RNA sequence: ACUGGAAAGAGUAGCACCUUUCUGUAAGCUAAGCGGCAGUCUAUGGAGGGCUGAAUCAGUUCGCUGGUGGAGUAACGGUUGCAUGGUUGUCUCGUCGAAAACAGUGUCUUGCAGAGUCUGGUGUCAACAUUCGGGUUUGGGCGUAAGCUUGGAUUCGGAGGUUGUUCAAUACUGGGGCAACGCCCGAGGGUAGCAAUACAGCAGGGAAAACUCAGAGCACUGGUACGGCUGUAAGAUGGCACGUUGGAGAGAAUUUAUCAUGUAAGCGCCACUGCGGGCUGGGACUACCCCUUUU
Numbered sequence: 001a002c003u004g005g006a007a008a009g010a011g012u013a014g015c016a017c018c019u020u021u022c023u024g025u026a027a028g029c030u031a032a033g034c035g036g037c038a039g040u041c042u043a044u045g046g047a048g049g050g051c052u053g054a055a056u057c058a059g060u061u062c063g064c065u066g067g068u069g070g071a072g073u074a075a076c077g078g079u080u081g082c083a084u085g086g087u088u089g090u091c092u093c094g095u096c097g098a099a100a101a102c103a104g105u106g107u108c109u110u111g112c113a114g115a116g117u118c119u120g121g122u123g124u125c126a127a128c129a130u131u132c133g134g135g136u137u138u139g140g141g142c143g144u145a146a147g148c149u150u151g152g153a154u155u156c157g158g159a160g161g162u163u164g165u166u167c168a169a170u171a172c173u174g175g176g177g178c179a180a181c182g183c184c185c186g187a188g189g190g191u192a193g194c195a196a197u198a199c200a201g202c203a204g205g206g207a208a209a210a211c212u213c214a215g216a217g218c219a220c221u222g223g224u225a226c227g228g229c230u231g232u233a234a235g236a237u238g239g240c241a242c243g244u245u246g247g248a249g250a251g252a253a254u255u256u257a258u259c260a261u262g263u264a265a266g267c268g269c270c271a272c273u274g275c276g277g278g279c280u281g282g283g284a285c286u287a288c289c290c291c292u293u294u295u
Base pairs, nucleotide, nucleotide: 001040002039003038004023005022006021007020008019009018028037029036030035045294046293047292048291049290050289052287054286056284057283061277062276063275064274066273067272068271069270070269076268077267079265080264081263082262083261084260085259086258087257090252091251092250093249095247100245101244102243104242105241106240107239108235109234110233111232112231113230114229116226117225118223119222120221121220122219123218124217125164126163127162128161130159131158132157133156134155135154136153137152138151139150140149141148142147165171172215173214174213175212176211183206184205185204190199191198192197